Annotation:
HNH endonuclease-associated RNA and ORF (HEARO) RNA: a 254-nucleotide RNA sequence from Candidatus Epulonipiscium fishelsonii. For this family Rfam cites "Exceptional structured noncoding RNAs revealed by bacterial metagenome analysis" (Weinberg et al., Nature, 2009).
[Rfam]
Nucleotides: 254
Stems, first nucleotide, its partner, number of pairs: 002023001005020004027041003055240003059236001060086001063083001089234005096227003136170002140164008148250001150248006172215009184206002187203004191198002
Number, partner (000 for none) and nucleotide at each position: 001000c002023u003000u004000a005020u006019u007018g008017a009000c010000a011000c012000g013000c014000a015000c016000c017008u018007u019006a020005a021000a022000u023002g024000g025000u026000g027041u028040g029039u030000g031000c032000u033000a034000a035000a036000a037000a038000a039029a040028c041027a042000a043000g044000u045000u046000g047000a048000u049000u050000g051000a052000u053000u054000a055240g056239c057238c058000u059236a060086a061000a062000a063083g064000g065000c066000u067000a068000g069000u070000a071000u072000u073000u074000g075000a076000a077000u078000a079000c080000u081000a082000g083063c084000c085000c086060u087000a088000c089234g090233u091232u092231a093230u094000u095000u096227u097226a098225g099000a100000a101000u102000a103000c104000a105000u106000g107000a108000a109000a110000a111000u112000u113000a114000a115000g116000c117000a118000a119000a120000g121000c122000u123000u124000a125000a126000u127000u128000a129000a130000a131000u132000a133000u134000a135000g136170u137169u138000a139000c140164c141163c142162u143161a144160g145159a146158a147157u148250a149000c150248u151247c152246c153245g154244c155243u156000a157147g158146u159145u160144c161143u162142a163141g164140g165000c166000u167000c168000u169137a170136a171000g172215a173214u174213c175212a176211a177210u178209g179208g180207u181000u182000a183000a184206a185205c186000a187203u188202c189201u190200c191198u192197g193000a194000g195000g196000g197192u198191a199000g200190g201189a202188g203187a204000a205185g206184u207180g208179c209178u210177g211176u212175u213174g214173a215172u216000a217000u218000a219000c220000a221000a222000a223000a224000c225098c226097u227096a228000c229000u230093a231092u232091a233090a234089c235000a236059u237000u238057g239056g240055c241000g242000a243155a244154g245153u246152g247151g248150a249000c250148u251000u252000a253000u254000c